[Rfam]
Nucleotides: 082
Base pairs, nucleotide, nucleotide: 001082002081003080004079005078006077015068016067017066018065019064020063021062023060024059026057027056028055029054030053031052032051033050034049035048
Number, partner (000 for none) and nucleotide at each position: 001082c002081c003080u004079u005078a006077a007000a008000g009000u010000a011000c012000u013000u014000u015068a016067g017066c018065a019064g020063c021062a022000c023060a024059u025000c026057a027056u028055g029054g030053u031052u032051u033050g034049c035048a036000c037000a038000c039000u040000g041000c042000u043000g044000a045000a046000g047000a048035u049034g050033c051032g052031a053030a054029u055028c056027a057026u058000u059024a060023u061000u062021u063020g064019c065018u066017g067016c068015u069000u070000u071000a072000g073000a074000a075000a076000u077006u078005u079004a080003a081002g082001g
Overview:
This 82-nucleotide RNA from Ceyx cyanopectus belongs to the Rfam family "mir-15 microRNA precursor family". Pairs were carried over by alignment from the consensus structure, which was predicted with RNAalifold. A reference for the family is Lagos-Quintana et al. (2001), "Identification of novel genes coding for small expressed RNAs", Science. This family represents the related mir-15a and mir-15b sequences. In humans miR-15a and miR-16 are clustered within 0.5 kb at 13q14. The match comes from Rfam's covariance-model search (68 bits).